Description:
Shown here is a 133-nucleotide sequence from Actinoplanes utahensis, a member of the family "c-di-AMP riboswitch aptamer (ydaO/yuaA leader)". The source organism's lineage runs through Bacteria, Actinomycetota, Actinomycetes, Micromonosporales and Actinoplanes. On this family, see Barrick et al., Proc Natl Acad Sci U S A 2004: "New RNA motifs suggest an expanded scope for riboswitches in bacterial genetic control".
[Rfam]
RNA sequence: GGCAGGCCGCCGCCCAAUCGCUGUGAAAGGCGAGCCGGGGAACCAGGUCACUGGGGUGAAUCCGCAGUUUGCGGUAGGGAUCGCUUCCGUCCCGAACCCGUCAGCUAACUCGGUCGGCGGUGCGACGGAAGGA
Numbered sequence: 001g002g003c004a005g006g007c008c009g010c011c012g013c014c015c016a017a018u019c020g021c022u023g024u025g026a027a028a029g030g031c032g033a034g035c036c037g038g039g040g041a042a043c044c045a046g047g048u049c050a051c052u053g054g055g056g057u058g059a060a061u062c063c064g065c066a067g068u069u070u071g072c073g074g075u076a077g078g079g080a081u082c083g084c085u086u087c088c089g090u091c092c093c094g095a096a097c098c099c100g101u102c103a104g105c106u107a108a109c110u111c112g113g114u115c116g117g118c119g120g121u122g123c124g125a126c127g128g129a130a131g132g133a
Stems, first nucleotide, its partner, number of pairs: 011119004018033005034114006044053002054099003062074004077093004